[Rfam]
RNA sequence: UUCAUCCUUGUCUACGGGAGCAAAUGUCCGAGGAUCGUAAAGUGAGGGCAUUGCUGCUGACACCAAAUUUAAUUUGGAACGCGCCCUGAAUAAUUUCAGAGUGCAAUUUUUGGAGCC
Numbered sequence: 001u002u003c004a005u006c007c008u009u010g011u012c013u014a015c016g017g018g019a020g021c022a023a024a025u026g027u028c029c030g031a032g033g034a035u036c037g038u039a040a041a042g043u044g045a046g047g048g049c050a051u052u053g054c055u056g057c058u059g060a061c062a063c064c065a066a067a068u069u070u071a072a073u074u075u076g077g078a079a080c081g082c083g084c085c086c087u088g089a090a091u092a093a094u095u096u097c098a099g100a101g102u103g104c105a106a107u108u109u110u111u112g113g114a115g116c117c
Stems, first nucleotide, its partner, number of pairs: 005019004020057003023052007036042001081104004086099005